This 78-nucleotide RNA sequence from Microcaecilia unicolor belongs to the Rfam family "Small nucleolar RNA SNORD66". NCBI's taxonomy places the organism under Eukaryota, Deuterostomia, Chordata, Gymnophiona, Microcaecilia. Pairs were carried over by alignment from the consensus structure, which was predicted with RNAalifold. For this family Rfam cites "RNomics: an experimental approach that identifies 201 candidates for novel, small, non-messenger RNAs in mouse" (Huttenhofer et al., EMBO J, 2001). The family has 20 seed sequences and 1,346 matches in Rfam 15.1. snoRNA HBII-142 is part of the C/D family of snoRNAs.
[Rfam]
RNA sequence: CUGUUGAUGAUGACAUCCUGUUUGUGCCAUCGUGUCUGGGCCACUGAAGCUCUGUGAUGGGACUGAGGAUCUGAACAG
Numbered sequence: 001c002u003g004u005u006g007a008u009g010a011u012g013a014c015a016u017c018c019u020g021u022u023u024g025u026g027c028c029a030u031c032g033u034g035u036c037u038g039g040g041c042c043a044c045u046g047a048a049g050c051u052c053u054g055u056g057a058u059g060g061g062a063c064u065g066a067g068g069a070u071c072u073g074a075a076c077a078g
Base pairs, nucleotide, nucleotide: 001078002077003076004075